[Rfam]
RNA sequence: UUGCCUCAGUGUCUGGGCAAAGCAGACUGUUUUUAAUAGUACUGACUUAAUCCACUGAUGGCUAUAGAAAAACAUUGUGUAAUCCCCGAACACCUUGUGGUGUAUUGGAUUCAUGACAUUGUGACAAUU
Numbered sequence: 001u002u003g004c005c006u007c008a009g010u011g012u013c014u015g016g017g018c019a020a021a022g023c024a025g026a027c028u029g030u031u032u033u034u035a036a037u038a039g040u041a042c043u044g045a046c047u048u049a050a051u052c053c054a055c056u057g058a059u060g061g062c063u064a065u066a067g068a069a070a071a072a073c074a075u076u077g078u079g080u081a082a083u084c085c086c087c088g089a090a091c092a093c094c095u096u097g098u099g100g101u102g103u104a105u106u107g108g109a110u111u112c113a114u115g116a117c118a119u120u121g122u123g124a125c126a127a128u129u
Stems, first nucleotide, its partner, number of pairs: 003062003007057004015053003020048003023044003026040005073123001075121001077119004086108004090103005
RNA: Caenorhabditis snoRNA ceN84